[Rfam]
RNA sequence: GGGUGCUCGCUUCCCGACUGCAGCGAGCAGGUAUCUGUGCUGGUCGGGCCGCCAGCA
Number, nucleotide and partner (000 for none) at each position: 001g000002g000003g000004u000005g028006c027007u026008c025009g024010c023011u022012u000013c000014c000015c000016g000017a000018c000019u000020g000021c000022a011023g010024c009025g008026a007027g006028c005029a000030g000031g000032u000033a000034u000035c000036u000037g000038u057039g056040c055041u054042g053043g052044u051045c000046g000047g000048g000049c000050c000051g044052c043053c042054a041055g040056c039057a038

This 57-nucleotide RNA from Sphingomonas sp. Root710 belongs to the Rfam family "nhaA-I RNA". The family's RNA type in Rfam is riboswitch.